The family of this 72-nucleotide sequence from Chloroceryle aenea is "Small nucleolar RNA SNORD66". NCBI's taxonomy places the organism under Eukaryota, Sauria, Dinosauria, Saurischia, Chloroceryle. It is annotated as a C/D-box small nucleolar RNA. Rfam links the family to the GO terms nucleolus and RNA processing. snoRNA HBII-142 is part of the C/D family of snoRNAs. A reference for the family is Huttenhofer et al. (2001), "RNomics: an experimental approach that identifies 201 candidates for novel, small, non-messenger RNAs in mouse", EMBO J.

RNA sequence: CUCCCAUGAUGAACUUCAUGACUUCGUGUCUGGGCCACUGAUACUGUGUGAUGGUGUUGAGGGUCUGAGGGG
Number, nucleotide and partner (000 for none) at each position: 001c072002u071003c070004c069005c000006a000007u000008g000009a000010u000011g000012a000013a000014c000015u000016u000017c000018a000019u000020g000021a000022c000023u000024u000025c000026g000027u000028g000029u000030c000031u000032g000033g000034g000035c000036c000037a000038c000039u000040g000041a000042u000043a000044c000045u000046g000047u000048g000049u000050g000051a000052u000053g000054g000055u000056g000057u000058u000059g000060a000061g000062g000063g000064u000065c000066u000067g000068a000069g004070g003071g002072g001